A member of the RNA family "Small nucleolar RNA SNORA15" from Phoenicopterus ruber, 132 nucleotides long.
Gene Ontology terms of the family: RNA processing and nucleolus.
[Rfam]
Nucleotides: 132
Stems, first nucleotide, its partner, number of pairs: 001057006014044005070125002073122004082118001084116001086114009
Number, partner (000 for none) and nucleotide at each position: 001057g002056c003055a004054u005053g006052g007000a008000c009000g010000a011000a012000u013000u014044c015043u016042g017041c018040g019000c020000u021000a022000g023000c024000u025000u026000u027000c028000c029000u030000c031000g032000g033000u034000a035000g036000c037000u038000a039000c040018u041017g042016c043015a044014g045000u046000c047000a048000g049000a050000c051000a052006c053005u054004a055003u056002g057001c058000c059000a060000g061000a062000a063000u064000a065000a066000a067000u068000u069000c070125c071124c072000u073122u074121u075120u076119c077000a078000c079000a080000c081000u082118c083000u084116g085000c086114g087113g088112u089111g090110u091109g092108c093107u094106u095000u096000u097000u098000a099000u100000a101000u102000g103000a104000g105000u106094g107093g108092g109091c110090a111089u112088g113087c114086c115000c116084u117000u118082g119076g120075a121074a122073g123000u124071g125070g126000g127000a128000u129000a130000c131000a132000u
Rfam's curators write: ACA15 is a member of the H/ACA class of snoRNA that guide the sites of modification of uridines to pseudouridines. The match comes from Rfam's covariance-model search (71 bits). The base pairs follow the family's consensus structure, which was predicted with RNAfold. Lineage of the source: Eukaryota > Sarcopterygii > Tetrapoda > Saurischia > Phoenicopterus ruber. On this family, see Huttenhofer et al., EMBO J 2001: "RNomics: an experimental approach that identifies 201 candidates for novel, small, non-messenger RNAs in mouse".